[Rfam]
RNA: tRNA
RNA sequence: CGGAAUAUAGCUCAGCUGGUUAGAGCAUUCCGCUGAUAACGGAGAGGUCGUUGGUUCAAGUCCAAUUAUUCCGA
Numbered sequence: 001c002g003g004a005a006u007a008u009a010g011c012u013c014a015g016c017u018g019g020u021u022a023g024a025g026c027a028u029u030c031c032g033c034u035g036a037u038a039a040c041g042g043a044g045a046g047g048u049c050g051u052u053g054g055u056u057c058a059a060g061u062c063c064a065a066u067u068a069u070u071c072c073g074a
Base pairs, nucleotide, nucleotide: 001073002072003071004070005069006068007067010026011025012024013023028044029043030042031041032040050066051065052064053063054062